Record summary
Shown here is a 137-nucleotide RNA sequence from Bowmanella sp. JS7-9, a member of the family "Molybdenum/Tungsten riboswitch aptamer (Moco RNA motif)". A search with the family's covariance model found it, with a score of 71 bits. The base pairs follow the family's consensus structure, which is taken from published work. Its family is annotated with tungstate binding, molybdenum ion binding and regulation of gene expression in the Gene Ontology. Lineage of the source: Bacteria > Pseudomonadati > Pseudomonadota > Gammaproteobacteria > Bowmanella. The family has 160 seed sequences and 1,248 matches in Rfam 15.1.
RNA sequence: UUACAGACAUAACACCGAGCUACCGGCUCUAAGGCUUUAACCAGGCUAGGAACGGUAAGCCGUGGCAAUAACGCCACCGGGUAUGACUGGAAACGGCCACACCUCCCCAUUUGGAAAGGUGAGUUAUGUUAAUUGAC
Numbered sequence: 001u002u003a004c005a006g007a008c009a010u011a012a013c014a015c016c017g018a019g020c021u022a023c024c025g026g027c028u029c030u031a032a033g034g035c036u037u038u039a040a041c042c043a044g045g046c047u048a049g050g051a052a053c054g055g056u057a058a059g060c061c062g063u064g065g066c067a068a069u070a071a072c073g074c075c076a077c078c079g080g081g082u083a084u085g086a087c088u089g090g091a092a093a094c095g096g097c098c099a100c101a102c103c104u105c106c107c108c109a110u111u112u113g114g115a116a117a118g119g120u121g122a123g124u125u126a127u128g129u130u131a132a133u134u135g136a137c
Base pairs, nucleotide, nucleotide: 013121014120015119016118019060020059021058024055026053028051029050033047034046035045036044062077063076064075065074066073079104080103081102082101084099085098087096088095089094105114106113